[Rfam]
RNA sequence: AAAAGGAGCAAUAACCUCUUUCUUGUUCUAUCAAGAGGGUGCUAUUGCUCCUUUUUAUU
Numbered sequence: 001a002a003a004a005g006g007a008g009c010a011a012u013a014a015c016c017u018c019u020u021u022c023u024u025g026u027u028c029u030a031u032c033a034a035g036a037g038g039g040u041g042c043u044a045u046u047g048c049u050c051c052u053u054u055u056u057a058u059u
Base pairs, nucleotide, nucleotide: 002054003053004052005051006050007049008048009047010046011045012044013043015041020037021036022035023034024033025032